[Rfam]
Nucleotides: 303
Stems, first nucleotide, its partner, number of pairs: 001040003004023007028037003044302010056290002058287003061283003065279002068277003074271003078262008088252002091250001097248005103242003106236002110233004115227009125164005132157003136153004141148002165170001172217005181210001183208003190201003
Number, partner (000 for none) and nucleotide at each position: 001040g002039c003038c004023g005022a006021g007020c008019u009018c010017a011000a012000u013000a014000a015000c016000a017010u018009g019008g020007g021006c022005u023004u024000g025000u026000a027000a028037c029036c030035c031000a032000a033000g034000u035030g036029g037028g038003g039002g040001c041000a042000c043000c044302a045301a046300g047299g048298u049297g050296a051295u052294g053293g054000g055000a056290u057289g058287u059286u060285g061283g062282g063281c064000u065279g066278u067000c068277u069276c070275a071000g072000a073000u074271g075270g076269u077000u078262g079261g080260g081259c082258u083257u084256g085255g086000c087000g088252g089251g090000c091250u092000c093000g094000u095000u096000u097248c098247u099246g100245g101244c102000c103242u104241g105240c106236c107235c108000u109000a110233u111232c112231c113230a114000a115227g116226c117225a118224c119223a120222g121221a122220g123219u124000u125164g126163g127162a128161u129160c130000a131000c132157g133156u134155a135000u136153c137152c138151c139150a140000a141148u142147c143000g144000a145000a146000a147142g148141a149000a150139u151138g152137g153136g154000c155134u156133a157132c158000u159000g160129g161128a162127u163126u164125c165170c166000u167000a168000a169000a170165g171000u172217g173216g174215g175214g176213c177000g178000g179000a180000c181210u182000g183208c184207g185206u186000g187000a188000g189000g190201c191200u192199g193000g194000u195000u196000u197000c198000a199192c200191a201190g202000a203000g204000c205000a206185a207184u208183g209000a210181a211000c212000a213176g214175c215174u216173c217172c218000c219123g220122c221121u222120c223119u224118g225117u226116g227115c228000a229000g230113u231112g232111g233110a234000a235107g236106g237000a238000u239000a240105g241104c242103g243000c244101g245100c246099c247098g248097g249000u250091g251089u252088c253000a254000u255085c256084c257083a258082a259081g260080c261079c262078c263000a264000g265000u266000a267000a268000c269076g270075c271074u272000u273000g274000a275070u276069g277068g278066g279065u280000u281063g282062c283061u284000c285060c286059a287058a288000u289057u290056a291000c292000a293053c294052u295051a296050u297049c298048a299047c300046u301045u302044u303000u

Shown here is a 303-nucleotide RNA sequence from Anisodus acutangulus, a member of the family "Plant signal recognition particle RNA". For this family Rfam cites "Towards the structure of the mammalian signal recognition particle" (Wild et al., Curr Opin Struct Biol, 2002). The match comes from Rfam's covariance-model search (251 bits). Rfam 15.1 lists 4,988 matches to the family in 266 species. The family's consensus secondary structure is taken from published work. By type it is a non-coding RNA gene.